[Rfam]
RNA sequence: AAAUGAAAGCAGAAGCACCCGCUUCUCGCCUAAGUGAGAAAAUUACUGGGCAGAAUAGGAUUCCGACUAAACGAUUUAGUGUGGAGUACGUGCGGGUUCUUGUAGAAGAACUCGUUUUUUUAUGUUUUC
Numbered sequence: 001a002a003a004u005g006a007a008a009g010c011a012g013a014a015g016c017a018c019c020c021g022c023u024u025c026u027c028g029c030c031u032a033a034g035u036g037a038g039a040a041a042a043u044u045a046c047u048g049g050g051c052a053g054a055a056u057a058g059g060a061u062u063c064c065g066a067c068u069a070a071a072c073g074a075u076u077u078a079g080u081g082u083g084g085a086g087u088a089c090g091u092g093c094g095g096g097u098u099c100u101u102g103u104a105g106a107a108g109a110a111c112u113c114g115u116u117u118u119u120u121u122a123u124g125u126u127u128u129c
Stems, first nucleotide, its partner, number of pairs: 011026006028051003034046004092115009

The record is a 129-nucleotide sequence from Enterococcus saccharolyticus, which matches "Ribosomal protein L20 leader" in Rfam. Rfam's curators write: This family is a putative r-protein leader autoregulatory structure found in B. subtilis and other low-GC Gram-positive bacteria. It is located in the 5' untranslated regions of mRNAs encoding initiation factor 3 followed by ribosomal proteins L35 and L20 (infC-rpmI-rplT). A Rho-independent transcription terminator structure that is probably involved in regulation is included at the 3' end. The literature on the family includes a 1994 paper in Prog Nucleic Acid Res Mol Biol by Zengel and Lindahl, "Diverse mechanisms for regulating ribosomal protein synthesis in Escherichia coli". Lineage of the source: Bacteria > Bacillati > Bacillota > Enterococcaceae > Enterococcus saccharolyticus subsp. saccharolyticus. Gene Ontology term of the family: regulation of gene expression.